This 124-nucleotide sequence from Ipomoea nil belongs to the Rfam family "Small nucleolar RNA SNORD14". About the family: U14 small nucleolar RNA (U14 snoRNA) is required for early cleavages of eukaryotic precursor rRNAs. In yeasts, this molecule possess a stem-loop region (known as the Y-domain) which is essential for function.
RNA sequence: UGUUGAUGAUGAUAAAAUCUAAGGCUUGUUUCUCAAAACAUUUGCAGUGGCCGCCUAUGUGCUUUCGUCUUCGCCGGGUUUGAGAGCUUGUGUUGCUUCUAUCCUUCCUUGGAUGUCUGAAACA
Numbered sequence: 001u002g003u004u005g006a007u008g009a010u011g012a013u014a015a016a017a018u019c020u021a022a023g024g025c026u027u028g029u030u031u032c033u034c035a036a037a038a039c040a041u042u043u044g045c046a047g048u049g050g051c052c053g054c055c056u057a058u059g060u061g062c063u064u065u066c067g068u069c070u071u072c073g074c075c076g077g078g079u080u081u082g083a084g085a086g087c088u089u090g091u092g093u094u095g096c097u098u099c100u101a102u103c104c105u106u107c108c109u110u111g112g113a114u115g116u117c118u119g120a121a122a123c124a
Stems, first nucleotide, its partner, number of pairs: 001124004061087006
Taxonomically the source falls in Ipomoea (Eukaryota, Streptophyta, Embryophyta, Mesangiospermae).